[Rfam]
RNA sequence: CCAACUUUUCUUGCUCAAAUGAGUAUUCCAAACAGAGCAGCAGAUGCAAAUGGAAACUAAUCAACCCUUUUUCUUUCUUUUUAUGAUGCUCCUGCUGCUUCUUUCUGCGAUGCUCAUUUCAGCAAGAAAUGUUGC
Numbered sequence: 001c002c003a004a005c006u007u008u009u010c011u012u013g014c015u016c017a018a019a020u021g022a023g024u025a026u027u028c029c030a031a032a033c034a035g036a037g038c039a040g041c042a043g044a045u046g047c048a049a050a051u052g053g054a055a056a057c058u059a060a061u062c063a064a065c066c067c068u069u070u071u072u073c074u075u076u077c078u079u080u081u082u083a084u085g086a087u088g089c090u091c092c093u094g095c096u097g098c099u100u101c102u103u104u105c106u107g108c109g110a111u112g113c114u115c116a117u118u119u120c121a122g123c124a125a126g127a128a129a130u131g132u133u134g135c
Base pairs, nucleotide, nucleotide: 004132005131007129008128010126011125012124013123014122015121017119018118019117020116021115022114023113024112025111026110027109029107030106
RNA: MIR828 microRNA precursor family
Organism: Cucurbita maxima